RNA: mir-11 microRNA precursor family
Organism: Apis mellifera
RNA sequence: GUACCCUGAUGGAGCUCUGGCUGUGACUUGUGUGUUAACUGAAUUAAAAUCACAUCACAGGCAGAGUUCUAGUUAGGUAA
Number, nucleotide and partner (000 for none) at each position: 001g000002u000003a000004c077005c076006c000007u000008g000009a000010u071011g070012g069013a068014g067015c066016u065017c064018u000019g000020g000021c060022u059023g058024u057025g056026a055027c000028u000029u000030g053031u052032g051033u000034g000035u000036u000037a000038a000039c000040u000041g000042a000043a000044u000045u000046a000047a000048a000049a000050u000051c032052a031053c030054a000055u026056c025057a024058c023059a022060g021061g000062c000063a000064g017065a016066g015067u014068u013069c012070u011071a010072g000073u000074u000075a000076g005077g004078u000079a000080a000